RNA sequence: AGCAUCUAUCAGUUUGGCAAGAUUUGCACUGGACUCAGUACUGUACUGUAUUCAGUGCAAAUCUUGCCAAACUGAUAGAUGCU
Number, nucleotide and partner (000 for none) at each position: 001a000002g000003c081004a080005u079006c078007u077008a076009u075010c074011a073012g072013u071014u070015u069016g068017g067018c066019a065020a064021g063022a000023u061024u060025u059026g058027c057028a056029c055030u000031g000032g053033a052034c000035u000036c000037a000038g000039u000040a000041c000042u000043g000044u000045a000046c000047u000048g000049u000050a000051u000052u033053c032054a000055g029056u028057g027058c026059a025060a024061a023062u000063c021064u020065u019066g018067c017068c016069a015070a014071a013072c012073u011074g010075a009076u008077a007078g006079a005080u004081g003082c000083u000
RNA: mir-19 microRNA precursor family